[Rfam]
RNA sequence: AAGUUCCCUCGUUCAACACCGCGGAGCCACAUUCGGAGUCCUCAGUGACUCUCAUGCUCUGAGGAAAGUCCCUGGACCCGUGGCAGCAAGUGUCGUAGCGUUAUCGCUGCCAGCCUUCCGCCGUCUUCUCGACUAGGAAAGGAAGCUUUCGGGCUGAUCUUCGAGUAAGGGUGGCAGUGUAUUGGUCAAAGAAAAGAAAUGUGUUUGAGGCGGGAAGUUCCAUCGAUUCUCUUCUCCUCGGAGAAGAAAUUGAAGAACUUGUCCAACUGAACAGGGCUUAUUACGAGGAAACU
Numbered sequence: 001a002a003g004u005u006c007c008c009u010c011g012u013u014c015a016a017c018a019c020c021g022c023g024g025a026g027c028c029a030c031a032u033u034c035g036g037a038g039u040c041c042u043c044a045g046u047g048a049c050u051c052u053c054a055u056g057c058u059c060u061g062a063g064g065a066a067a068g069u070c071c072c073u074g075g076a077c078c079c080g081u082g083g084c085a086g087c088a089a090g091u092g093u094c095g096u097a098g099c100g101u102u103a104u105c106g107c108u109g110c111c112a113g114c115c116u117u118c119c120g121c122c123g124u125c126u127u128c129u130c131g132a133c134u135a136g137g138a139a140a141g142g143a144a145g146c147u148u149u150c151g152g153g154c155u156g157a158u159c160u161u162c163g164a165g166u167a168a169g170g171g172u173g174g175c176a177g178u179g180u181a182u183u184g185g186u187c188a189a190a191g192a193a194a195a196g197a198a199a200u201g202u203g204u205u206u207g208a209g210g211c212g213g214g215a216a217g218u219u220c221c222a223u224c225g226a227u228u229c230u231c232u233u234c235u236c237c238u239c240g241g242a243g244a245a246g247a248a249a250u251u252g253a254a255g256a257a258c259u260u261g262u263c264c265a266a267c268u269g270a271a272c273a274g275g276g277c278u279u280a281u282u283a284c285g286a287g288g289a290a291a292c293u
Stems, first nucleotide, its partner, number of pairs: 002293004007288005014207002016204004022061006036051005066279003070276004082094004095110006112178001118174005128165003135161004145154003209263006